[Rfam]
RNA sequence: AAACCGUCCUCUAAGUUUUGCAACUGUAGCAGUUUGGCUCCCCAAGGUCAAUUUUUGGUAAAAAAAUAAAUAAUACGUGGCACCUCAUUUAAGGUGUCACGUCAGAGUAGACCGAGUCAAAAUUGGCCUUGGGGCCAAAACUGUCACAAAUGCAAAACUUAGGGGGCGGUUU
Numbered sequence: 001a002a003a004c005c006g007u008c009c010u011c012u013a014a015g016u017u018u019u020g021c022a023a024c025u026g027u028a029g030c031a032g033u034u035u036g037g038c039u040c041c042c043c044a045a046g047g048u049c050a051a052u053u054u055u056u057g058g059u060a061a062a063a064a065a066a067u068a069a070a071u072a073a074u075a076c077g078u079g080g081c082a083c084c085u086c087a088u089u090u091a092a093g094g095u096g097u098c099a100c101g102u103c104a105g106a107g108u109a110g111a112c113c114g115a116g117u118c119a120a121a122a123u124u125g126g127c128c129u130u131g132g133g134g135c136c137a138a139a140a141c142u143g144u145c146a147c148a149a150a151u152g153c154a155a156a157a158c159u160u161a162g163g164g165g166g167c168g169g170u171u172u
Stems, first nucleotide, its partner, number of pairs: 001172002004169005012161011025148003029144007037136001040134006075102002078099007
This 172-nucleotide RNA sequence from Medicago truncatula belongs to the Rfam family "MIR2619 microRNA precursor family". The source organism's lineage runs through Eukaryota, Euphyllophyta, eudicotyledons, Hologalegina and Medicago. Gene Ontology terms of the family: RISC complex and miRNA-mediated post-transcriptional gene silencing. The family's consensus secondary structure was predicted with RNAalifold.